[Rfam]
This 204-nucleotide RNA sequence belongs to the Rfam family "Group II catalytic intron D1-D4-5". Its family is annotated with Group II intron splicing in the Gene Ontology.

RNA sequence: UCUAACUGAUAUUCCGAGAAGUGGAAUGACGGGGUAACGCCCUGAAACGCUUCCCUUGAUACUGCGUUGGAAGAAACAGGACGUAUUUCCCGCGACUGACACAGCACGCUGAAGUCGGCUGUCUGCACCCGCAACUGUCUCCUUUGGGGAUAAAGCAAAACCGAGCCAGAGGUGGCCGGGGGUGUUAGGCCGGAGGUCUAUAAA
Numbered sequence: 001u002c003u004a005a006c007u008g009a010u011a012u013u014c015c016g017a018g019a020a021g022u023g024g025a026a027u028g029a030c031g032g033g034g035u036a037a038c039g040c041c042c043u044g045a046a047a048c049g050c051u052u053c054c055c056u057u058g059a060u061a062c063u064g065c066g067u068u069g070g071a072a073g074a075a076a077c078a079g080g081a082c083g084u085a086u087u088u089c090c091c092g093c094g095a096c097u098g099a100c101a102c103a104g105c106a107c108g109c110u111g112a113a114g115u116c117g118g119c120u121g122u123c124u125g126c127a128c129c130c131g132c133a134a135c136u137g138u139c140u141c142c143u144u145u146g147g148g149g150a151u152a153a154a155g156c157a158a159a160a161c162c163g164a165g166c167c168a169g170a171g172g173u174g175g176c177c178g179g180g181g182g183u184g185u186u187a188g189g190c191c192g193g194a195g196g197u198c199u200a201u202a203a204a
Stems, first nucleotide, its partner, number of pairs: 018053006031043004054196004064109004068101002072097002077092001079090001116192005125185006131156002137151005161179003165176004